This 69-nucleotide RNA from Salmo salar belongs to the Rfam family "mir-29 microRNA precursor family". It scores 60 bits against the family's covariance model. The organism belongs to Salmo, within Eukaryota. This family represents the microRNA (miRNA) precursors mir-29. Gene Ontology terms of the family: RISC complex and gene silencing by miRNA.
RNA sequence: GGAUGACUGAUUUCUUCUGGUGUUUAGAGCCCCUUACAGCCUUCUAGCACCAUUUGAAAUCGGUUACAA
Numbered sequence: 001g002g003a004u005g006a007c008u009g010a011u012u013u014c015u016u017c018u019g020g021u022g023u024u025u026a027g028a029g030c031c032c033c034u035u036a037c038a039g040c041c042u043u044c045u046a047g048c049a050c051c052a053u054u055u056g057a058a059a060u061c062g063g064u065u066a067c068a069a
Stems, first nucleotide, its partner, number of pairs: 004066001005064001007063008018052005025046004